[Rfam]
RNA sequence: AUGAAUGGAUGAGGAGCAAAAAUCAUCAGUACUCGUUUUUAUACGGACCUGUAAGUCUAAAAUGAGGAAAGGGAGAUUUGCCGAAAUCGUUUGCUUUUACAGAGAGCAAACCGUUGGGCUGCAUAUGAAGAAUCUGCAGACUGCCGUAUAGCUAUAGGCUAAACGGAGUGCUUCCGCUUGU
Number, nucleotide and partner (000 for none) at each position: 001a000002u000003g000004a000005a000006u176007g175008g174009a173010u000011g171012a000013g000014g000015a000016g081017c080018a079019a078020a077021a000022a000023u074024c073025a000026u000027c000028a000029g000030u000031a000032c066033u065034c064035g063036u062037u061038u060039u059040u000041a000042u000043a000044c000045g000046g000047a000048c000049c000050u000051g000052u000053a000054a000055g000056u000057c000058u000059a039060a038061a037062a036063u035064g034065a033066g032067g000068a000069a000070a000071g000072g000073g024074a023075g000076a000077u020078u019079u018080g017081c016082c000083g000084a000085a115086a114087u113088c000089g111090u110091u109092u108093g107094c106095u105096u104097u000098u000099a000100c000101a000102g000103a000104g096105a095106g094107c093108a092109a091110a090111c089112c000113g087114u086115u085116g142117g141118g000119c139120u138121g137122c136123a135124u000125a133126u132127g000128a000129a000130g000131a000132a126133u125134c000135u123136g122137c121138a120139g119140a000141c117142u116143g000144c166145c165146g164147u163148a000149u161150a160151g000152c000153u000154a000155u000156a000157g000158g000159c000160u150161a149162a000163a147164c146165g145166g144167a000168g000169u000170g000171c011172u000173u009174c008175c007176g006177c000178u000179u000180g000181u000
A member of the RNA family "Lysine riboswitch aptamer" from Alkalibacterium sp. 20, 181 nucleotides long. Rfam describes the family as follows. Riboswitches are metabolite binding domains within certain messenger RNAs that serve as precision sensors for their corresponding targets.